[Rfam]
RNA sequence: CUACAAUGAUGGCAGUAUUUUUUGUCAACAGCAGUUUACCUAGUGAGUGUUGAUCCUUUGAGUCUGAGAAA
Numbered sequence: 001c002u003a004c005a006a007u008g009a010u011g012g013c014a015g016u017a018u019u020u021u022u023u024g025u026c027a028a029c030a031g032c033a034g035u036u037u038a039c040c041u042a043g044u045g046a047g048u049g050u051u052g053a054u055c056c057u058u059u060g061a062g063u064c065u066g067a068g069a070a071a
Stems, first nucleotide, its partner, number of pairs: 002070001004068001008026004